[Rfam]
RNA sequence: AUGUGAAAUAGGGGAGCGGAACUCCAUCAGUACCCGGCGCGAGGCAGCGGCCGCCGUUGACCGGCGGGGAAAGGGGAGUCCGCCGAAGGUCAUCUUUCCGGCCGCGGGAGGGUGGCCUGGGGCCGUCACCGAACAGGGGCGGCACUGUCACGAAGGCCGACCGCCGGCUUUCGUGGAGCACUAUCUCACAG
Numbered sequence: 001a002u003g004u005g006a007a008a009u010a011g012g013g014g015a016g017c018g019g020a021a022c023u024c025c026a027u028c029a030g031u032a033c034c035c036g037g038c039g040c041g042a043g044g045c046a047g048c049g050g051c052c053g054c055c056g057u058u059g060a061c062c063g064g065c066g067g068g069g070a071a072a073g074g075g076g077a078g079u080c081c082g083c084c085g086a087a088g089g090u091c092a093u094c095u096u097u098c099c100g101g102c103c104g105c106g107g108g109a110g111g112g113u114g115g116c117c118u119g120g121g122g123c124c125g126u127c128a129c130c131g132a133a134c135a136g137g138g139g140c141g142g143c144a145c146u147g148u149c150a151c152g153a154a155g156g157c158c159g160a161c162c163g164c165c166g167g168c169u170u171u172c173g174u175g176g177a178g179c180a181c182u183a184u185c186u187c188a189c190a191g
Stems, first nucleotide, its partner, number of pairs: 006186001008184004016083005022078004033068004038063002087118012119146002122143006129136001148176010
Rfam assigns this 191-nucleotide sequence from Planifilum fulgidum to the family "Lysine riboswitch aptamer". The source organism's lineage runs through Bacteria, Bacillota, Bacilli, Thermoactinomycetaceae and Planifilum.